[Rfam]
RNA sequence: CUCUUAUUCAGAGUGGUGGAGAGUGAAGGCUCUAUGAAACCACGGCAACCCCUGUCUUAUCAGGAAGGUGCCAAUCUCAGCGAGAAAUCGAUCAAUAAGAG
Numbered sequence: 001c002u003c004u005u006a007u008u009c010a011g012a013g014u015g016g017u018g019g020a021g022a023g024u025g026a027a028g029g030c031u032c033u034a035u036g037a038a039a040c041c042a043c044g045g046c047a048a049c050c051c052c053u054g055u056c057u058u059a060u061c062a063g064g065a066a067g068g069u070g071c072c073a074a075u076c077u078c079a080g081c082g083a084g085a086a087a088u089c090g091a092u093c094a095a096u097a098a099g100a101g
Base pairs, nucleotide, nucleotide: 001101002100003099004098005097006096007095008094013043014042015041016040017039021032022031023030028078029077044072045071046070047069049068050067051064052063053062054061081090082089083088
SAM riboswitch aptamer (S box leader): a 101-nucleotide RNA from bacterium D16-59. Its family is annotated with regulation of gene expression in the Gene Ontology. Its Rfam clan is "SAM clan". Pairs were carried over by alignment from the consensus structure, which is taken from published work. The literature on the family includes a 2013 paper in RNA by Daldrop and Lilley, "The plasticity of a structural motif in RNA: structural polymorphism of a kink turn as a function of its environment".